[Rfam]
RNA sequence: ACGCAGAAAUUAACCAUUCAUUAAUCUUAAGAAUGUUAAAUGGUUUACAUCCAGUUCGGCUGGAUUCUUACCGAGUGGUUUAGCCACUCUGUUUGACGCCUCCCUGUUAAACUCCUGAGAGCCGCCAUUGCGGCUCUUUUUUU
Numbered sequence: 001a002c003g004c005a006g007a008a009a010u011u012a013a014c015c016a017u018u019c020a021u022u023a024a025u026c027u028u029a030a031g032a033a034u035g036u037u038a039a040a041u042g043g044u045u046u047a048c049a050u051c052c053a054g055u056u057c058g059g060c061u062g063g064a065u066u067c068u069u070a071c072c073g074a075g076u077g078g079u080u081u082a083g084c085c086a087c088u089c090u091g092u093u094u095g096a097c098g099c100c101u102c103c104c105u106g107u108u109a110a111a112c113u114c115c116u117g118a119g120a121g122c123c124g125c126c127a128u129u130g131c132g133g134c135u136c137u138u139u140u141u142u143u
Stems, first nucleotide, its partner, number of pairs: 001046001003044002006015001017040002022038004027033001049065004073089006095108004117138009